[Rfam]
RNA: Purine riboswitch aptamer
Organism: Halalkalibacter nanhaiisediminis
RNA sequence: AAACAAUCAUAGAAAACAACUCGUAUAAUCGUAGGGAUAUGGCCUACAAGUUUCUACCAAGCUACCGUAAAUGGCUUGACUACGAAUGAUGUUUUGACAUUC
Numbered sequence: 001a002a003a004c005a006a007u008c009a010u011a012g013a014a015a016a017c018a019a020c021u022c023g024u025a026u027a028a029u030c031g032u033a034g035g036g037a038u039a040u041g042g043c044c045u046a047c048a049a050g051u052u053u054c055u056a057c058c059a060a061g062c063u064a065c066c067g068u069a070a071a072u073g074g075c076u077u078g079a080c081u082a083c084g085a086a087u088g089a090u091g092u093u094u095u096g097a098c099a100u101u102c
Base pairs, nucleotide, nucleotide: 019087021085022084023083024082025081029049031047032046033045034044035043058078059077060076061075062074063073064072